Annotation: The family of this 92-nucleotide RNA from Saccharothrix australiensis is "Glycine riboswitch aptamer". It scores 61 bits against the family's covariance model.
[Rfam]
RNA sequence: GGAACCCGGGCGGGAGAGCCUCCAGCGUCGUUGGAGCGCCGAAGGAGCAAGCACCCCGCACACUCUCAGGCAACGAGAACCGCUCGGGCGAG
Numbered sequence: 001g002g003a004a005c006c007c008g009g010g011c012g013g014g015a016g017a018g019c020c021u022c023c024a025g026c027g028u029c030g031u032u033g034g035a036g037c038g039c040c041g042a043a044g045g046a047g048c049a050a051g052c053a054c055c056c057c058g059c060a061c062a063c064u065c066u067c068a069g070g071c072a073a074c075g076a077g078a079a080c081c082g083c084u085c086g087g088g089c090g091a092g
Base pairs, nucleotide, nucleotide: 006087007086008085009084010083011082012081013080020036021035022034023033038071039070040069041067042066045065046064047063051059052058
Lineage of the source: Bacteria > Bacillati > Actinomycetota > Pseudonocardiaceae > Saccharothrix.